[Rfam]
RNA sequence: GUUGAAGUUCCAUCCACAAAUGGUUAAGACUUAGGUCUUAGUGUUAGUGUAGGCUAGUUUUCGUGUAUAUGAGUCGUUGAAGUUUCAGGAGUAAUACCCCAAUUCUUGUUUUGUCAAGAGGUUGGUAUUACUCCU
Numbered sequence: 001g002u003u004g005a006a007g008u009u010c011c012a013u014c015c016a017c018a019a020a021u022g023g024u025u026a027a028g029a030c031u032u033a034g035g036u037c038u039u040a041g042u043g044u045u046a047g048u049g050u051a052g053g054c055u056a057g058u059u060u061u062c063g064u065g066u067a068u069a070u071g072a073g074u075c076g077u078u079g080a081a082g083u084u085u086c087a088g089g090a091g092u093a094a095u096a097c098c099c100c101a102a103u104u105c106u107u108g109u110u111u112u113g114u115c116a117a118g119a120g121g122u123u124g125g126u127a128u129u130a131c132u133c134c135u
Stems, first nucleotide, its partner, number of pairs: 010023004087135011101122001103120005
The record is a 135-nucleotide sequence from Helleborus thibetanus, which matches "Plastid-psbA-1 3UTR RNA" in Rfam. Its Rfam clan is "Plastid-psbA 3UTR RNA clan". The base pairs follow the family's consensus structure, which was predicted with LocARNA. The family's RNA type in Rfam is cis-regulatory element. The literature on the family includes a 2023 paper in Plant Commun by Richter et al., "Retrograde signaling in plants: A critical review focusing on the GUN pathway and beyond".